[Rfam]
RNA sequence: UAUCGGAGAGAGAUAUCAGGCUAUGGCUGUUUGUGUUCUAUAAAGUCAGUCUUUUUCUCUCUCCUAUU
Numbered sequence: 001u002a003u004c005g006g007a008g009a010g011a012g013a014u015a016u017c018a019g020g021c022u023a024u025g026g027c028u029g030u031u032u033g034u035g036u037u038c039u040a041u042a043a044a045g046u047c048a049g050u051c052u053u054u055u056u057c058u059c060u061c062u063c064c065u066a067u068u
Base pairs, nucleotide, nucleotide: 002067003066005064006063007062008061010059011058012057013056018052019051020050021049022048026046027045028044030042
This 68-nucleotide RNA sequence from Cinara cedri belongs to the Rfam family "mir-14 microRNA precursor family".
Gene Ontology terms of the family: RISC complex and miRNA-mediated post-transcriptional gene silencing.
The source organism's lineage runs through Eukaryota, Eumetazoa, Bilateria, Paraneoptera and Cinara.
A reference for the family is Skalsky et al. (2010), "Identification of microRNAs expressed in two mosquito vectors, Aedes albopictus and Culex quinquefasciatus", BMC Genomics.